[Rfam]
RNA sequence: GCAUGGGUUUGGAUUUAUGGCAGGCCCGUCCCCAUGGACCUCUCAUAGUGUCCUAUGCUAAAGCAAACAGUAGCCCUGAACCAUUGCCUGGCCUCCUUGCCCAUAGGCUUGGGCGCUGAAGUGGGUUGCACAGUA
Numbered sequence: 001g002c003a004u005g006g007g008u009u010u011g012g013a014u015u016u017a018u019g020g021c022a023g024g025c026c027c028g029u030c031c032c033c034a035u036g037g038a039c040c041u042c043u044c045a046u047a048g049u050g051u052c053c054u055a056u057g058c059u060a061a062a063g064c065a066a067a068c069a070g071u072a073g074c075c076c077u078g079a080a081c082c083a084u085u086g087c088c089u090g091g092c093c094u095c096c097u098u099g100c101c102c103a104u105a106g107g108c109u110u111g112g113g114c115g116c117u118g119a120a121g122u123g124g125g126u127u128g129c130a131c132a133g134u135a
Base pairs, nucleotide, nucleotide: 001058002057003056004055005053006052007051008050015048016047017046018045019044020043022041023040024039025037026036071128072127073126074125075124076123082118083117087113088112090109091108092107093106094105